[Rfam]
RNA sequence: GGGAAAUGAGGAGUGGUUGGAUCUCACCAAUUUUGUGAGUUGAGUGUUCCGCCCACAGCCUGGUUACGACAAUUGGGCACUCUCCCAAUUCCAAUCUGAUCCC
Numbered sequence: 001g002g003g004a005a006a007u008g009a010g011g012a013g014u015g016g017u018u019g020g021a022u023c024u025c026a027c028c029a030a031u032u033u034u035g036u037g038a039g040u041u042g043a044g045u046g047u048u049c050c051g052c053c054c055a056c057a058g059c060c061u062g063g064u065u066a067c068g069a070c071a072a073u074u075g076g077g078c079a080c081u082c083u084c085c086c087a088a089u090u091c092c093a094a095u096c097u098g099a100u101c102c103c
Stems, first nucleotide, its partner, number of pairs: 001103004014093003023039005042082005048077002061075004
Dot-bracket structure: ((((.........(((......(((((.......)))))..(((((.((...........((((.......)))))))))))........)))......))))
RNA: Small nucleolar RNA Z279/snoR105/snoR108